[Rfam]
RNA sequence: UGGGCUGGUCAAUGACCCGGGUCCAUCGCGGUCGGGGAUGUUCCCC
Numbered sequence: 001u002g003g004g005c006u007g008g009u010c011a012a013u014g015a016c017c018c019g020g021g022u023c024c025a026u027c028g029c030g031g032u033c034g035g036g037g038a039u040g041u042u043c044c045c046c
Stems, first nucleotide, its partner, number of pairs: 001025006007017004

The record is a 46-nucleotide RNA from Ruminococcaceae bacterium FB2012, which matches "DUF3800-XI RNA" in Rfam. It scores 44 bits against the family's covariance model. It is annotated as a small RNA.